The family of this 80-nucleotide RNA from Mesorhizobium sp. is "Makes More Granules Regulator RNA (mmgR)". By type it is a small RNA.
RNA sequence: UACCGCUGCCCUCCUUGGGCGUUUCCUCCCUAGACUUGGGCCGCUUGCGUCAUUCGCCAGCGGCCCUUUUUUCUUGCGGC
Numbered sequence: 001u002a003c004c005g006c007u008g009c010c011c012u013c014c015u016u017g018g019g020c021g022u023u024u025c026c027u028c029c030c031u032a033g034a035c036u037u038g039g040g041c042c043g044c045u046u047g048c049g050u051c052a053u054u055c056g057c058c059a060g061c062g063g064c065c066c067u068u069u070u071u072u073c074u075u076g077c078g079g080c
Stems, first nucleotide, its partner, number of pairs: 008020004039065007047057003